[Rfam]
Nucleotides: 227
Base pairs, nucleotide, nucleotide: 007206009204016070017069019067076091078089079088080087081086106142107141108140109139110138164198165197166196167195168194170192171191174187175186176185177184209225210224211223212222213221
Number, partner (000 for none) and nucleotide at each position: 001000g002000g003000a004000c005000c006000c007206g008000g009204u010000u011000c012000g013000c014000u015000u016070a017069g018000a019067c020000g021000u022000c023000a024000c025000c026000a027000c028000u029000c030000a031000a032000a033000u034000c035000a036000c037000g038000g039000a040000g041000g042000u043000a044000a045000a046000u047000c048000c049000a050000a051000c052000c053000a054000a055000c056000c057000c058000c059000a060000c061000c062000c063000c064000u065000c066000c067019g068000g069017c070016u071000c072000c073000c074000c075000g076091u077000a078089a079088c080087u081086c082000g083000g084000a085000c086081g087080g088079g089078u090000g091076a092000a093000c094000u095000g096000u097000g098000c099000c100000a101000a102000c103000u104000g105000a106142g107141c108140u109139g110138g111000a112000u113000u114000u115000c116000g117000g118000g119000c120000u121000g122000g123000u124000u125000g126000c127000c128000g129000g130000g131000c132000a133000u134000a135000u136000g137000c138110u139109c140108g141107g142106c143000g144000c145000a146000c147000a148000a149000c150000a151000u152000c153000a154000g155000a156000c157000a158000u159000g160000a161000g162000a163000c164198g165197g166196c167195c168194c169000c170192c171191g172000c173000c174187g175186g176185g177184a178000c179000u180000g181000g182000c183000a184177u185176c186175c187174c188000g189000a190000u191171c192170g193000a194168g195167g196166g197165c198164c199000u200000g201000a202000c203000c204009a205000a206007c207000u208000a209225g210224g211223a212222a213221g214000u215000c216000a217000g218000c219000a220000c221213c222212u223211u224210c225209c226000c227000a
Record summary
Rfam assigns this 227-nucleotide RNA sequence from Streptomyces sp. ISL-94 to the family "Streptomyces sRNA 4677". Located in the intergenic region between anti-sigma factor SCO4677 gene and a putative regulatory protein gene SCO4676. scr4677 expression requires the SCO4677 activity and scr4677 sRNA itself seem to affect the levels of the SCO4676-associated transcripts. The source organism's lineage runs through Bacteria, Actinomycetota, Actinomycetes, Streptomycetaceae and Streptomyces. The base pairs follow the family's consensus structure.